[Rfam]
RNA: mir-9193 microRNA precursor family
RNA sequence: CUCAGGGGGCGGGGGUCCCUCAGCUCAGAUUGUGAGAGGGCGCAGGCCAUGCUGAGGGACCCCACCAGUGCACG
Numbered sequence: 001c002u003c004a005g006g007g008g009g010c011g012g013g014g015g016u017c018c019c020u021c022a023g024c025u026c027a028g029a030u031u032g033u034g035a036g037a038g039g040g041c042g043c044a045g046g047c048c049a050u051g052c053u054g055a056g057g058g059a060c061c062c063c064a065c066c067a068g069u070g071c072a073c074g
Base pairs, nucleotide, nucleotide: 006069009066012063013062014061015060016059017058018057019056020055021054022053023052024051028047030045031044032043033042034041